This 429-nucleotide RNA sequence from Edaphobacter albus belongs to the Rfam family "Bacterial RNase P class A". The source organism's lineage runs through Bacteria, Pseudomonadati, Terriglobia, Acidobacteriaceae and Edaphobacter. It scores 282 bits against the family's covariance model.
[Rfam]
RNA sequence: GCAGGCGGCCGGAUGAUCGCUGCCGAGCAGGUCGAAUGAUCUGCCGGGAGAGGAAAGUCCGAACUCCGAAGGGCAGUGUGCCGGAUAACGUCCGGGACGGAUGGUUCAAGCCAUCUGGACGGCCAGUGCAACAGAGAACAUACCGCCACGAUCGCAAGAUCGGGGUAAGGGUGAAAAGGUGCGGUAAGAGCGCACCGCGCGGCUGGUAACAGACGCGGCAAUGUAAACCCCACACGGAGCAAGACCAAAUAGGCAGGGACUUCGUCGCUUCUCUUCAGGCGGCGGAGGCGUAUCGGCCCGGUACGCUCAGGCGAAGAGGCCCGAAAGGGCUCCGAAACCUGCGGGUAGGUUGCUGGAGCGCCGCAGUAAUGCGUCGCCUAGAGGAAUGAUCAUCUAGAACAGAAUUCGGCUUACGAGCCGUCUGCAGAA
Numbered sequence: 001g002c003a004g005g006c007g008g009c010c011g012g013a014u015g016a017u018c019g020c021u022g023c024c025g026a027g028c029a030g031g032u033c034g035a036a037u038g039a040u041c042u043g044c045c046g047g048g049a050g051a052g053g054a055a056a057g058u059c060c061g062a063a064c065u066c067c068g069a070a071g072g073g074c075a076g077u078g079u080g081c082c083g084g085a086u087a088a089c090g091u092c093c094g095g096g097a098c099g100g101a102u103g104g105u106u107c108a109a110g111c112c113a114u115c116u117g118g119a120c121g122g123c124c125a126g127u128g129c130a131a132c133a134g135a136g137a138a139c140a141u142a143c144c145g146c147c148a149c150g151a152u153c154g155c156a157a158g159a160u161c162g163g164g165g166u167a168a169g170g171g172u173g174a175a176a177a178g179g180u181g182c183g184g185u186a187a188g189a190g191c192g193c194a195c196c197g198c199g200c201g202g203c204u205g206g207u208a209a210c211a212g213a214c215g216c217g218g219c220a221a222u223g224u225a226a227a228c229c230c231c232a233c234a235c236g237g238a239g240c241a242a243g244a245c246c247a248a249a250u251a252g253g254c255a256g257g258g259a260c261u262u263c264g265u266c267g268c269u270u271c272u273c274u275u276c277a278g279g280c281g282g283c284g285g286a287g288g289c290g291u292a293u294c295g296g297c298c299c300g301g302u303a304c305g306c307u308c309a310g311g312c313g314a315a316g317a318g319g320c321c322c323g324a325a326a327g328g329g330c331u332c333c334g335a336a337a338c339c340u341g342c343g344g345g346u347a348g349g350u351u352g353c354u355g356g357a358g359c360g361c362c363g364c365a366g367u368a369a370u371g372c373g374u375c376g377c378c379u380a381g382a383g384g385a386a387u388g389a390u391c392a393u394c395u396a397g398a399a400c401a402g403a404a405u406u407c408g409g410c411u412u413a414c415g416a417g418c419c420g421u422c423u424g425c426a427g428a429a
Base pairs, nucleotide, nucleotide: 001425002424003423004422005421006420007419008418009417011414012394013393014392015391016390017389018388020050021049023047024046025045055412056411057410059409060408061407062406063405064239065238066237067236076235077234078233079232080231081095082094083093084092085091096120098117099116100115101114102113103112104111105110121230122229126228127227128224129223130222143170144169145166146165147164149162150161151160152159153158178196179195180194181193182192183191197219198217199216200215201214203212204211205210243351244350245349246348253342254341255340256339257338358377359376360375362373363372364371365370